[Rfam]
Rfam assigns this 108-nucleotide RNA from Cnephaeus nilssonii to the family "mir-584 microRNA precursor family".
It scores 82 bits against the family's covariance model.
A reference for the family is Lui et al. (2007), "Patterns of known and novel small RNAs in human cervical cancer", Cancer Res.
The family's consensus secondary structure was predicted with RNAalifold.
Taxonomically the source falls in Cnephaeus (Eukaryota, Sarcopterygii, Amniota, Eutheria).
Its family is annotated with miRNA-mediated post-transcriptional gene silencing and RISC complex in the Gene Ontology.

RNA sequence: UAGGGUGACCAACCAUCCUGGUUUGCCCAAGACUAAGAAGUUUCCUGGGAUGUUCAGAAAGCAAGAGAGUCUUGGACAAACCAGGAUGGUUGGUUACCCUAAAACAUU
Number, nucleotide and partner (000 for none) at each position: 001u101002a100003g099004g098005g097006u096007g095008a094009c093010c092011a091012a090013c089014c088015a087016u000017c000018c000019u083020g082021g081022u080023u079024u078025g077026c000027c075028c074029a073030a072031g071032a070033c069034u068035a000036a000037g000038a053039a000040g051041u050042u049043u000044c000045c000046u000047g000048g000049g042050a041051u040052g000053u038054u000055c000056a000057g000058a000059a000060a000061g000062c000063a000064a000065g000066a000067g000068a034069g033070u032071c031072u030073u029074g028075g027076a000077c025078a024079a023080a022081c021082c020083a019084g000085g000086a000087u015088g014089g013090u012091u011092g010093g009094u008095u007096a006097c005098c004099c003100u002101a001102a000103a000104a000105c000106a000107u000108u000